Shown here is a 180-nucleotide RNA sequence from Ancylomarina salipaludis, a member of the family "Bacteroidales-1 6S-Bacteroidales RNA suggested". Rfam describes the family as follows. Bacteroidales-1 was first reported in a comparative genomics-based approach of genome and metagenome sequences from Weinberg et al. 2010 In a high-resolution transcriptome map study of Bacteroides thetaiotaomicron, Ryan et al. 2020 report this sRNA as 6S RNA homologue of Bacteroides, in the study they obtain evidence of small product RNAs (pRNAs) related to 6S function. The match comes from Rfam's covariance-model search (75 bits). The organism belongs to Ancylomarina, within Bacteria.

RNA sequence: AAUCGCACUAGUUAUCGAUUGUUAAACUCAACACUUACAAGUUACCGAGAAAGCUACACGUUUGCAAAAGCAGGCCCCAACCUUCGGGUUGUUUUCGGACACAGGGGAAACUUGACCAGAUGGGCACUCAAAUCCUGUUUUAUAGGAGUUUAAAAUCCAUUAGCUAGUGCGCUUUUUUUU
Dot-bracket structure: ....................................................(((.((..((((...((.....((((.(((....)))..(.(....).)..))))....))...))))))))).......................................................